[Rfam]
RNA sequence: AUUACUCACUCUCCCUCAAGGGCUUCUGGAAUUGCCGGUAGGCGAUGUCUGAAGUCCUUGGGGCGAGUGAAUAAUAA
Numbered sequence: 001a002u003u004a005c006u007c008a009c010u011c012u013c014c015c016u017c018a019a020g021g022g023c024u025u026c027u028g029g030a031a032u033u034g035c036c037g038g039u040a041g042g043c044g045a046u047g048u049c050u051g052a053a054g055u056c057c058u059u060g061g062g063g064c065g066a067g068u069g070a071a072u073a074a075u076a077a
Stems, first nucleotide, its partner, number of pairs: 006070006013063003017060010
RNA: MIR473 microRNA precursor family